[Rfam]
Rfam assigns this 216-nucleotide RNA from Herbinix hemicellulosilytica to the family "T-box leader". It scores 152 bits against the family's covariance model. Gene Ontology term of the family: tRNA binding.
RNA sequence: AAAAAAGCUGUGAAGAGGAGUAUUAAGAGAAGAUGUGCUUUCAGAGAGCUGCCGGUCGGUGGAAGGCAGCAGCAACGGUCUCCCAACUCGCCUCGGAGCUUUCCGGCUGAAUUUUCAGUAGGUCGGAACGGAUAAUCCCCGUUAAAGGUUAUAAGUGCGCAAUAAGUAUUAUUGCGAAUUAGAGUGGUACCGCGGAAAUUACCUUUCGUCUCUAUG
Numbered sequence: 001a002a003a004a005a006a007g008c009u010g011u012g013a014a015g016a017g018g019a020g021u022a023u024u025a026a027g028a029g030a031a032g033a034u035g036u037g038c039u040u041u042c043a044g045a046g047a048g049c050u051g052c053c054g055g056u057c058g059g060u061g062g063a064a065g066g067c068a069g070c071a072g073c074a075a076c077g078g079u080c081u082c083c084c085a086a087c088u089c090g091c092c093u094c095g096g097a098g099c100u101u102u103c104c105g106g107c108u109g110a111a112u113u114u115u116c117a118g119u120a121g122g123u124c125g126g127a128a129c130g131g132a133u134a135a136u137c138c139c140c141g142u143u144a145a146a147g148g149u150u151a152u153a154a155g156u157g158c159g160c161a162a163u164a165a166g167u168a169u170u171a172u173u174g175c176g177a178a179u180u181a182g183a184g185u186g187g188u189a190c191c192g193c194g195g196a197a198a199u200u201a202c203c204u205u206u207c208g209u210c211u212c213u214a215u216g
Stems, first nucleotide, its partner, number of pairs: 007099002015094004027082004037073003048070006102127007129141003158176007181213004192209005